RNA sequence: CCCAGGGCGUUGCCCCGGGCUGUCGUAGGUCGCCCCUUUGGGGCU
Number, nucleotide and partner (000 for none) at each position: 001c019002c018003c017004a000005g015006g014007g013008c012009g000010u000011u000012g008013c007014c006015c005016c000017g003018g002019g001020c000021u000022g000023u000024c000025g000026u000027a000028g000029g000030u000031c000032g044033c043034c042035c041036c040037u000038u000039u000040g036041g035042g034043g033044c032045u000
RNA: Acido-Lenti-1 RNA